Rfam assigns this 438-nucleotide part of an RNA from Sediminispirochaeta smaragdinae to the family "Bacterial large subunit ribosomal RNA".
RNA sequence: CUCUCCGAAAUAGCUUUAGGGCUAGCCUUGCAAGGACAGACGCGGAGGUAGAGCACUGGUUGGGCUAGGGCCCUUCACCGGGUACCAACCCCAGAUAAACUCCGAAUGCCGCGUGUUAAUAUGCAGGAGUCAGACUACGGGUAAUAAGGUCCGUGGUCAAAAGGGAAACAGCCCAGACCGUCAGCUAAGGUCCCGAAACUAUGCUAAGUGGAAAAGGAAGUGAAACGGCGAAGACAGCCAGGAGGUUGGCUUAGAAGCAGCCACACCUUCAAAGAGUGCGUAAUAGCUCACUGGUCGAGUCGUUUUGCGCUGAUAAUGUAACGGGGCUAAGCAUAGUACCGAAGCUACGGCAUCGUCUUUGGACGGUGGGUAGGAGAGCGUUCCACAUACCGAUGAAGGUGAACCGGGAGGUUUGCUGGAGGGAGUGGAAGUGAGAAU
Numbered sequence: 001c002u003c004u005c006c007g008a009a010a011u012a013g014c015u016u017u018a019g020g021g022c023u024a025g026c027c028u029u030g031c032a033a034g035g036a037c038a039g040a041c042g043c044g045g046a047g048g049u050a051g052a053g054c055a056c057u058g059g060u061u062g063g064g065c066u067a068g069g070g071c072c073c074u075u076c077a078c079c080g081g082g083u084a085c086c087a088a089c090c091c092c093a094g095a096u097a098a099a100c101u102c103c104g105a106a107u108g109c110c111g112c113g114u115g116u117u118a119a120u121a122u123g124c125a126g127g128a129g130u131c132a133g134a135c136u137a138c139g140g141g142u143a144a145u146a147a148g149g150u151c152c153g154u155g156g157u158c159a160a161a162a163g164g165g166a167a168a169c170a171g172c173c174c175a176g177a178c179c180g181u182c183a184g185c186u187a188a189g190g191u192c193c194c195g196a197a198a199c200u201a202u203g204c205u206a207a208g209u210g211g212a213a214a215a216g217g218a219a220g221u222g223a224a225a226c227g228g229c230g231a232a233g234a235c236a237g238c239c240a241g242g243a244g245g246u247u248g249g250c251u252u253a254g255a256a257g258c259a260g261c262c263a264c265a266c267c268u269u270c271a272a273a274g275a276g277u278g279c280g281u282a283a284u285a286g287c288u289c290a291c292u293g294g295u296c297g298a299g300u301c302g303u304u305u306u307g308c309g310c311u312g313a314u315a316a317u318g319u320a321a322c323g324g325g326g327c328u329a330a331g332c333a334u335a336g337u338a339c340c341g342a343a344g345c346u347a348c349g350g351c352a353u354c355g356u357c358u359u360u361g362g363a364c365g366g367u368g369g370g371u372a373g374g375a376g377a378g379c380g381u382u383c384c385a386c387a388u389a390c391c392g393a394u395g396a397a398g399g400u401g402a403a404c405c406g407g408g409a410g411g412u413u414u415g416c417u418g419g420a421g422g423g424a425g426u427g428g429a430a431g432u433g434a435g436a437a438u
Stems, first nucleotide, its partner, number of pairs: 001378006011024005026129001027127006036120001038116001040114006051103001052101002057097002061093004068086002070083004133158010163174003178350004183346003189340003198337007216311002220308010237295005243268003248262003269273001274289001278287002351368007379433001381430006390422002398417008
The organism belongs to Sediminispirochaeta smaragdinae, within Bacteria.